A member of the RNA family "c-di-AMP riboswitch aptamer (ydaO/yuaA leader)" from Allocoleopsis franciscana, 130 nucleotides long. Pairs were carried over by alignment from the consensus structure. For this family Rfam cites "New RNA motifs suggest an expanded scope for riboswitches in bacterial genetic control" (Barrick et al., Proc Natl Acad Sci U S A, 2004). A search with the family's covariance model found it, with a score of 74 bits. Gene Ontology terms of the family: regulation of gene expression and cyclic-di-AMP binding.
RNA sequence: CAUUCAAUCAAGUCUUAACUUGGAGAAGAACGGAGGAACCAAUUUUUGGGGCAAAUCUCACUCAGCGUGAGACAGACACCUUCCAGUCUGAGUCCGUCAGCUAACUCCGUAGGCAAUGGAAGGAGCACCA
Numbered sequence: 001c002a003u004u005c006a007a008u009c010a011a012g013u014c015u016u017a018a019c020u021u022g023g024a025g026a027a028g029a030a031c032g033g034a035g036g037a038a039c040c041a042a043u044u045u046u047u048g049g050g051g052c053a054a055a056u057c058u059c060a061c062u063c064a065g066c067g068u069g070a071g072a073c074a075g076a077c078a079c080c081u082u083c084c085a086g087u088c089u090g091a092g093u094c095c096g097u098c099a100g101c102u103a104a105c106u107c108c109g110u111a112g113g114c115a116a117u118g119g120a121a122g123g124a125g126c127a128c129c130a
Base pairs, nucleotide, nucleotide: 012114013113014112019028020027030110031109032108033107034106035105040048041047049095050094051093057071058070059069060068074089075088076087077086